Shown here is a 180-nucleotide RNA sequence from Lachnoclostridium phytofermentans, a member of the family "6S / SsrS RNA".
[Rfam]
RNA sequence: AACUACCUGAAGUGCUCGAUACUCUUGCUAUUUUGAACCUACAAUACUUUAAACGGGAUUCCUAUAUUGGUGAGCGGAUGUCAAGCCUCCGUUUGCAGUGGAAGGCAGAAACUUACUUGCGGUUACCCACCUAGCUUGUGCUAGGAGUCAAAAUACAGGAACCGGCAUUUUGGGGGUUAC
Numbered sequence: 001a002a003c004u005a006c007c008u009g010a011a012g013u014g015c016u017c018g019a020u021a022c023u024c025u026u027g028c029u030a031u032u033u034u035g036a037a038c039c040u041a042c043a044a045u046a047c048u049u050u051a052a053a054c055g056g057g058a059u060u061c062c063u064a065u066a067u068u069g070g071u072g073a074g075c076g077g078a079u080g081u082c083a084a085g086c087c088u089c090c091g092u093u094u095g096c097a098g099u100g101g102a103a104g105g106c107a108g109a110a111a112c113u114u115a116c117u118u119g120c121g122g123u124u125a126c127c128c129a130c131c132u133a134g135c136u137u138g139u140g141c142u143a144g145g146a147g148u149c150a151a152a153a154u155a156c157a158g159g160a161a162c163c164g165g166c167a168u169u170u171u172g173g174g175g176g177u178u179a180c
Stems, first nucleotide, its partner, number of pairs: 002178001004176001006174010017164002029155004034150003038145002055128003061122002066118001069117006081105002086101002089098001
A search with the family's covariance model found it, with a score of 68 bits. The base pairs follow the family's consensus structure, which is taken from published work.